This 123-nucleotide sequence from Orthohepacivirus hominis belongs to the Rfam family "Hepatitis C virus J7880 RNA". Taxonomically the source falls in Orthohepacivirus (Viruses, Orthornavirae, Amarillovirales, Hepaciviridae). The family's consensus secondary structure was predicted with RNAfold. By type it is a cis-regulatory element. On this family, see Mauger et al., Proc Natl Acad Sci U S A 2015: "Functionally conserved architecture of hepatitis C virus RNA genomes".

[Rfam]
RNA sequence: GUAAAGGAGCGAGCGUCUAAGGUAAAGGCCCGCAUGCUCACCAUCGAGGAAGCGUGCGCGCUCGUCCCUCCUCACUCUGCCCGGUCAAAGUUCGGGUAUAGUGCGAAGGACGUUCGCUCCUUG
Numbered sequence: 001g002u003a004a005a006g007g008a009g010c011g012a013g014c015g016u017c018u019a020a021g022g023u024a025a026a027g028g029c030c031c032g033c034a035u036g037c038u039c040a041c042c043a044u045c046g047a048g049g050a051a052g053c054g055u056g057c058g059c060g061c062u063c064g065u066c067c068c069u070c071c072u073c074a075c076u077c078u079g080c081c082c083g084g085u086c087a088a089a090g091u092u093c094g095g096g097u098a099u100a101g102u103g104c105g106a107a108g109g110a111c112g113u114u115c116g117c118u119c120c121u122u123g
Stems, first nucleotide, its partner, number of pairs: 006120005012114007022065002025062001028057002032053001035050001037048003068103001070101001074097004079091002
Dot-bracket structure: .....(((((.(((((((...((.(..((..(..(.(((......))).)..)..))....).))..(.(...((((.((.........))..))))...).)....))))))).)))))...